[Rfam]
Nucleotides: 384
Stems, first nucleotide, its partner, number of pairs: 001380010012335007020041009046367003050364005055218004062270004067214005072086005087101001088099004102209002107207002109203003124148002126144008156174006176198001177196008222292004250283006262274004299318008
Number, partner (000 for none) and nucleotide at each position: 001380g002379g003378a004377g005376u006375c007374g008373g009372c010371c011000a012335g013334a014333c015332g016331g017330c018329c019000g020041c021040g022039g023038c024037a025036c026035c027034g028033c029000g030000c031000a032000c033028g034027c035026g036025g037024u038023g039022u040021c041020g042000a043000g044000g045000a046367a047366a048365g049000u050364c051363c052362g053361g054360a055218c056217u057216c058215c059000a060000c061000a062270g063269g064268g065267c066000a067214g068213g069212g070211u071210g072086g073085u074084c075083g076082g077000u078000a079000a080000c081000a082076c083075c084074g085073a086072c087101c088099c089098g090097g091096g092000g093000u094000g095000a096091c097090c098089c099088g100000c101087g102209g103208g104000a105000u106000a107207g108206u109203g110202c111201c112000a113000c114000a115000g116000a117000a118000a119000a120000c121000a122000g123000a124148c125147c126144g127143c128142c129141g130140u131139c132138c133137c134000c135000g136000u137133g138132g139131g140130a141129c142128g143127g144126u145000a146000a147125g148124g149000g150000u151000g152000a153000a154000a155000c156174g157173g158172u159171g160170g161169u162000g163000u164000a165000a166000g167000a168000g169161a170160c171159c172158a173157c174156c175000a176198g177196c178195g179194g180193c181192c182191g183190g184189a185000g186000u187000g188000a189184u190183c191182c192181g193180g194179u195178c196177g197000g198176c199000u200000a201111g202110g203109u204000a205000a206108a207107c208103c209102c210071c211070a212069c213068c214067c215058g216057g217056a218055g219000c220000a221000a222292g223291g224290u225289c226000a227000a228000g229000a230000g231000g232000g233000a234000g235000a236000c237000u238000u239000c240000g241000g242000u243000c244000u245000c246000c247000u248000g249000c250283a251282c252281g253280g254279a255278c256000g257000c258000u259000u260000g261000a262274g263273g264272g265271c266000g267065g268064c269063c270062c271265g272264u273263c274262c275000g276000a277000u278255g279254u280253c281252c282251g283250u284000g285000g286000g287000u288000a289225g290224a291223c292222c293000g294000c295000a296000u297000g298000a299318g300317g301316c302315c303314g304313c305312u306311g307000g308000c309000a310000a311306c312305a313304g314303c315302g316301g317300u318299c319000c320000u321000a322000g323000a324000u325000g326000g327000a328000u329018g330017g331016c332015c333014g334013u335012c336000a337000c338000a339000a340000c341000c342000c343000g344000u345000u346000c347000a348000g349000g350000g351000u352000u353000g354000a355000c356000a357000g358000a359000a360054u361053c362052c363051g364050g365048c366047u367046u368000a369000c370000c371010g372009g373008c374007c375006g376005a377004c378003u379002c380001c381000c382000u383000g384000u
The family of this 384-nucleotide RNA sequence from Thermobifida fusca is "Bacterial RNase P class A".
Taxonomically the source falls in Thermobifida fusca (Bacteria, Bacillati, Streptosporangiales, Thermobifida).
By type it is a ribozyme.